[Rfam]
RNA sequence: AAUAGCACAAGGCACACUUAUCAAAAGAUAAAGCAGCAAAGCAAAGGGUCUAAGGUGCAAACGCACAAUGACAGCAUGUGCUGCCCAA
Numbered sequence: 001a002a003u004a005g006c007a008c009a010a011g012g013c014a015c016a017c018u019u020a021u022c023a024a025a026a027g028a029u030a031a032a033g034c035a036g037c038a039a040a041g042c043a044a045a046g047g048g049u050c051u052a053a054g055g056u057g058c059a060a061a062c063g064c065a066c067a068a069u070g071a072c073a074g075c076a077u078g079u080g081c082u083g084c085c086c087a088a
Stems, first nucleotide, its partner, number of pairs: 012037002018031005040082004045077001047075001048072003055066004

Shown here is an 88-nucleotide RNA sequence from Robertmurraya siralis, a member of the family "c-di-GMP-I riboswitch aptamer". A search with the family's covariance model found it, with a score of 57 bits. The organism belongs to Robertmurraya, within Bacteria.